Record summary
The family of this 47-nucleotide RNA from alpha proteobacterium BAL199 is "chrB-b RNA". Pairs were carried over by alignment from the consensus structure, which is taken from published work. It is one of the family's seed sequences.

[Rfam]
RNA sequence: CCGGGUAGUGCGGGAUCCCGGUCAGACGGCUGUCGUCCAAGUCCCGC
Numbered sequence: 001c002c003g004g005g006u007a008g009u010g011c012g013g014g015a016u017c018c019c020g021g022u023c024a025g026a027c028g029g030c031u032g033u034c035g036u037c038c039a040a041g042u043c044c045c046g047c
Stems, first nucleotide, its partner, number of pairs: 001021005010047005025037005